[Rfam]
Nucleotides: 173
Base pairs, nucleotide, nucleotide: 001165002164003163004162008049009048010047011046012045013044014043015042050160051159052158053157054156055155060089061088090145091144092143098121099120100119124139125138126137127136
Number, partner (000 for none) and nucleotide at each position: 001165u002164g003163c004162c005000g006000a007000g008049u009048c010047c011046u012045g013044c014043c015042a016000c017000c018000a019000c020000c021000c022000g023000c024000a025000g026000g027000u028000c029000c030000g031000u032000u033000c034000g035000a036000c037000a038000c039000g040000c041000a042015u043014g044013g045012c046011a047010g048009g049008a050160g051159c052158g053157g054156g055155g056000g057000a058000a059000c060089c061088a062000a063000u064000c065000c066000g067000g068000g069000c070000a071000u072000c073000g074000g075000c076000c077000u078000c079000c080000g081000a082000u083000g084000c085000c086000c087000u088061u089060g090145g091144g092143g093000u094000g095000a096000a097000g098121u099120c100119c101000c102000g103000g104000g105000a106000g107000c108000g109000c110000a111000a112000g113000c114000g115000a116000c117000c118000a119100g120099g121098a122000c123000c124139g125138g126137g127136u128000g129000a130000u131000c132000u133000c134000c135000c136127a137126c138125c139124c140000g141000a142000a143092c144091c145090c146000g147000a148000c149000a150000g151000c152000u153000c154000a155055c156054c157053u158052c159051g160050c161000a162004g163003g164002c165001a166000u167000c168000g169000g170000a171000g172000a173000g